[Rfam]
RNA sequence: GUCUGACAGAAGCAGCACAUAACAUACUGGUAAUGCAGUGAAAAAUACCAGUAAUGAUGUGCUGCUACGGCCAGAU
Numbered sequence: 001g002u003c004u005g006a007c008a009g010a011a012g013c014a015g016c017a018c019a020u021a022a023c024a025u026a027c028u029g030g031u032a033a034u035g036c037a038g039u040g041a042a043a044a045a046u047a048c049c050a051g052u053a054a055u056g057a058u059g060u061g062c063u064g065c066u067a068c069g070g071c072c073a074g075a076u
Stems, first nucleotide, its partner, number of pairs: 001076003005072001007070001011066008020056001022055001025053006
A member of the RNA family "mir-16 microRNA precursor family" from Maylandia zebra, 76 nucleotides long. The match comes from Rfam's covariance-model search (37 bits). The family has 14 seed sequences and 4,705 matches in Rfam 15.1. Rfam links the family to the GO terms RISC complex and miRNA-mediated post-transcriptional gene silencing. Pairs were carried over by alignment from the consensus structure, which was predicted with PFOLD. Lineage of the source: Eukaryota > Neoteleostei > Percomorphaceae > Haplochromini > Maylandia zebra complex. The family is grouped with related families in Rfam's "mir-15 clan". A reference for the family is Jin et al. (2020), "Structural Basis for pri-miRNA Recognition by Drosha", Mol Cell.